The record is an 89-nucleotide RNA sequence from Corchorus capsularis, which matches "mir-156 microRNA precursor family" in Rfam. The family's consensus secondary structure was predicted with PFOLD. The family has 10 seed sequences and 1,401 matches in Rfam 15.1. NCBI's taxonomy places the organism under Eukaryota, Embryophyta, Mesangiospermae, eudicotyledons, Corchorus. On this family, see Ambros, Cell 2001: "microRNAs: tiny regulators with great potential". About the family: This family represents the plant microRNA (miRNA) precursor mir-156.

[Rfam]
RNA sequence: GUGACAGAAGAGAGUGAGCACACAUAGUUCUUUCUUGCAUGAGUAUUGUAUCGUGCUUGAAACUUUAUGUGCUUGCUCUUUUCUGUCAC
Numbered sequence: 001g002u003g004a005c006a007g008a009a010g011a012g013a014g015u016g017a018g019c020a021c022a023c024a025u026a027g028u029u030c031u032u033u034c035u036u037g038c039a040u041g042a043g044u045a046u047u048g049u050a051u052c053g054u055g056c057u058u059g060a061a062a063c064u065u066u067a068u069g070u071g072c073u074u075g076c077u078c079u080u081u082u083c084u085g086u087c088a089c
Stems, first nucleotide, its partner, number of pairs: 001089021024066001
Dot-bracket structure: (((((((((((((((((((((..(.........................................)..)))))))))))))))))))))